[Rfam]
RNA sequence: CCGCUCAUCAUUUUUGUGAUUUUUGCAAUUAUGUGCUGUAAGGAAUUGCAUAGUCACAAAAGUGAUGGUCGU
Numbered sequence: 001c002c003g004c005u006c007a008u009c010a011u012u013u014u015u016g017u018g019a020u021u022u023u024u025g026c027a028a029u030u031a032u033g034u035g036c037u038g039u040a041a042g043g044a045a046u047u048g049c050a051u052a053g054u055c056a057c058a059a060a061a062g063u064g065a066u067g068g069u070c071g072u
Base pairs, nucleotide, nucleotide: 002071003070005068006067008065009064010063011062012061013060014059015058016057017056018055019054020053024050025049026048027047028046029045030044
Shown here is a 72-nucleotide RNA sequence from Homarus americanus, a member of the family "mir-153 microRNA precursor family". The family's consensus secondary structure was predicted with RNAalifold. On this family, see Chen et al., Genes Dev 2005: "The developmental miRNA profiles of zebrafish as determined by small RNA cloning". Taxonomically the source falls in Homarus (Eukaryota, Opisthokonta, Eumalacostraca, Decapoda).